[Rfam]
RNA sequence: UUGGUUUAAAUCAAUGUGGGUCUACACUUUAGAAAUAGAACUCAUACAAAAUAGUAGAACAUAUAUUUGUUUAAUCCAA
Numbered sequence: 001u002u003g004g005u006u007u008a009a010a011u012c013a014a015u016g017u018g019g020g021u022c023u024a025c026a027c028u029u030u031a032g033a034a035a036u037a038g039a040a041c042u043c044a045u046a047c048a049a050a051a052u053a054g055u056a057g058a059a060c061a062u063a064u065a066u067u068u069g070u071u072u073a074a075u076c077c078a079a
Stems, first nucleotide, its partner, number of pairs: 001079004006074006013067006022057003026052001028050003
RNA: MIR5269 microRNA precursor family
Organism: Medicago truncatula